[Rfam]
RNA sequence: UAUCCUUUGUUUCCGGCAAAAGACUACCCCUCAGCCGGAGCAUAUUAAUGA
Numbered sequence: 001u002a003u004c005c006u007u008u009g010u011u012u013c014c015g016g017c018a019a020a021a022g023a024c025u026a027c028c029c030c031u032c033a034g035c036c037g038g039a040g041c042a043u044a045u046u047a048a049u050g051a
Base pairs, nucleotide, nucleotide: 013038014037015036016035017034
This 51-nucleotide sequence from Salmonella bongori belongs to the Rfam family "PyrC leader".
On this family, see Turnbough and Switzer, Microbiol Mol Biol Rev 2008: "Regulation of pyrimidine biosynthetic gene expression in bacteria: repression without repressors".
Gene Ontology term of the family: regulation of gene expression.
It is annotated as a cis-regulatory leader.
The base pairs follow the family's consensus structure, which is taken from published work.